Source information
The record is a 72-nucleotide RNA from Antrihabitans stalagmiti, which matches "ASpks TB sRNA" in Rfam. The family has 77 seed sequences and 9,052 matches in Rfam 15.1. NCBI's taxonomy places the organism under Bacteria, Actinomycetota, Actinomycetes, Nocardiaceae, Antrihabitans. The family's consensus secondary structure is taken from published work. It scores 63 bits against the family's covariance model. By type it is an antisense RNA. For this family Rfam cites "Identification of small RNAs in Mycobacterium tuberculosis" (Arnvig and Young, Mol Microbiol, 2009).

[Rfam]
Nucleotides: 072
Base pairs, nucleotide, nucleotide: 015025016024017023031068032067035062040057041056042055044053045052046051
Number, partner (000 for none) and nucleotide at each position: 001000u002000u003000u004000g005000a006000u007000c008000g009000a010000c011000c012000c013000c014000a015025g016024c017023u018000g019000c020000a021000a022000c023017g024016g025015c026000c027000c028000c029000u030000u031068c032067g033000a034000u035062c036000g037000c038000u039000c040057c041056u042055g043000g044053c045052c046051a047000u048000a049000g050000g051046u052045g053044g054000c055042c056041a057040g058000c059000a060000g061000g062035g063000c064000u065000u066000c067032c068031g069000c070000c071000u072000c